Shown here is a 122-nucleotide sequence from Gossypium anomalum, a member of the family "Small nucleolar RNA Z266". It is annotated as a C/D-box small nucleolar RNA. The match comes from Rfam's covariance-model search (60 bits). The family has 11 seed sequences and 719 matches in Rfam 15.1.
RNA sequence: AAUUGGCAAGAGUGAUGAAUCAAUUAGAUGUGUGAAUGGGGGUAUUGAAUUUAUUUUCUUUUAAUAUUUCCCAUCUUGAAGUCAAACUUUCGAGGCAUUAGAAUUUGUCUGACUUGCCAUUG
Numbered sequence: 001a002a003u004u005g006g007c008a009a010g011a012g013u014g015a016u017g018a019a020u021c022a023a024u025u026a027g028a029u030g031u032g033u034g035a036a037u038g039g040g041g042g043u044a045u046u047g048a049a050u051u052u053a054u055u056u057u058c059u060u061u062u063a064a065u066a067u068u069u070c071c072c073a074u075c076u077u078g079a080a081g082u083c084a085a086a087c088u089u090u091c092g093a094g095g096c097a098u099u100a101g102a103a104u105u106u107g108u109c110u111g112a113c114u115u116g117c118c119a120u121u122g
Base pairs, nucleotide, nucleotide: 002121004119005118006117007116008115009114010113